[Rfam]
RNA sequence: AGAUAGCACUGUUUUGCUAUUUCCGGCCAAAAACACAAUGACACAUGAAAAAGUUGACUUAUGUGUCAUUGCGUUAUUGGCCGGAGAUAGCAAAAAGUGAUAUCC
Numbered sequence: 001a002g003a004u005a006g007c008a009c010u011g012u013u014u015u016g017c018u019a020u021u022u023c024c025g026g027c028c029a030a031a032a033a034c035a036c037a038a039u040g041a042c043a044c045a046u047g048a049a050a051a052a053g054u055u056g057a058c059u060u061a062u063g064u065g066u067c068a069u070u071g072c073g074u075u076a077u078u079g080g081c082c083g084g085a086g087a088u089a090g091c092a093a094a095a096a097g098u099g100a101u102a103u104c105c
Base pairs, nucleotide, nucleotide: 002104003103004102005101012095013094014093015092016091017090018089019088020087022085023084024083025082026081027080028079029078030077032075033074034073036071037070038069039068040067041066042065043064044063045062046061047060048059